Description
A member of the RNA family "ZMP/ZTP riboswitch aptamer (pfl RNA motif)" from Anaeromassilibacillus sp. An172, 81 nucleotides long. The match comes from Rfam's covariance-model search (66 bits). Pairs were carried over by alignment from the consensus structure, which is taken from published work.
RNA sequence: CUUCGUUUCUGUGACUGACGGAACAGUGGAUUGACCACAGUGGAGCAGAAACGGCAAAAGCCGACCGUCUGGGCAAUCCUC
Numbered sequence: 001c002u003u004c005g006u007u008u009c010u011g012u013g014a015c016u017g018a019c020g021g022a023a024c025a026g027u028g029g030a031u032u033g034a035c036c037a038c039a040g041u042g043g044a045g046c047a048g049a050a051a052c053g054g055c056a057a058a059a060g061c062c063g064a065c066c067g068u069c070u071g072g073g074c075a076a077u078c079c080u081c
Stems, first nucleotide, its partner, number of pairs: 003054010015042001017069005026038004060074003
Background: Taxonomically the source falls in Anaeromassilibacillus (Bacteria, Bacillati, Bacillota, Eubacteriales).